[Rfam]
RNA sequence: GCAAAAAUGUGAUCUUGCUUGUAAAUACAAUUUUGAGAGGUUAAUAAAUUACAAGUAGUGCUAUUUUUGUAUUUAGGUUAGCUAUUUAGCUUUACGUUCCAGGAUGCCUAGUGGCAGCCCCACAAUAUCCAGGAAGCCCUCUCUGCGGUUUUUCAGAUUAGGUAGUCGAAAAACCUAAGAAAUUUACCUGCUACAU
Dot-bracket structure: (((((((((......(((((((((.(........[[[[[[......).)))))))))....)))))))))...[[[[[.((((....)))).....((((.((((]]]]]((((.....))))...)))).))))..]]]]]]...[[[[[.[..[[[((((((]]]..]]]]]].........))))))......
Record summary:
This 196-nucleotide RNA sequence from Cripavirus grylli belongs to the Rfam family "Cripavirus internal ribosome entry site (IRES)". Pairs were carried over by alignment from the consensus structure, which is taken from published work. NCBI's taxonomy places the organism under Viruses, Riboviria, Orthornavirae, Pisoniviricetes, Cripavirus grylli. Rfam's curators write: This family represents a Cripavirus internal ribosome entry site (IRES) which is required for the production of capsid proteins through IRES-mediated translation.